[Rfam]
RNA: Group II catalytic intron D1-D4-1
Organism: Cohnella cholangitidis
RNA sequence: UAACCAGAAUCGAGAGGCUUUGCUGAAUCCGCAGGAGCCAGCAGAGGUCAUAGUGCGCAAGCUGUUGCAACGGCUAGCGGAAGGGC
Dot-bracket structure: ((..((((.((....)).)))).)).............(....)..(((......(((.(((..........))).)))....)))